[Rfam]
RNA sequence: GUUUAUCUUCAGGGGCAGGGUGAAAAUCCCGACCGGCGGUAAAAGUCCGCGACCUGCAUUUAUGCAGUUGAUUUGGUGUAAUUCCAAAACCGACAGUAAAGUCUGGAUAAAGAAGAUAGGG
Numbered sequence: 001g002u003u004u005a006u007c008u009u010c011a012g013g014g015g016c017a018g019g020g021u022g023a024a025a026a027u028c029c030c031g032a033c034c035g036g037c038g039g040u041a042a043a044a045g046u047c048c049g050c051g052a053c054c055u056g057c058a059u060u061u062a063u064g065c066a067g068u069u070g071a072u073u074u075g076g077u078g079u080a081a082u083u084c085c086a087a088a089a090c091c092g093a094c095a096g097u098a099a100a101g102u103c104u105g106g107a108u109a110a111a112g113a114a115g116a117u118a119g120g121g
Base pairs, nucleotide, nucleotide: 003119004118005117006116007115008114009113010112018030019029020028032102033101034092035091036050037049038048039047045090046089054067055066072088073087074086075085076084094105095104096103